[Rfam]
RNA: tRNA
RNA sequence: GCCCCUAUAGCUCAGUGGUAGAGCACUCGCUUCGUAAGCGAAAGGUCGGUGGUUCGAUCCCGCUUGGGGGCU
Numbered sequence: 001g002c003c004c005c006u007a008u009a010g011c012u013c014a015g016u017g018g019u020a021g022a023g024c025a026c027u028c029g030c031u032u033c034g035u036a037a038g039c040g041a042a043a044g045g046u047c048g049g050u051g052g053u054u055c056g057a058u059c060c061c062g063c064u065u066g067g068g069g070g071c072u
Stems, first nucleotide, its partner, number of pairs: 001071007010024004027041004048064005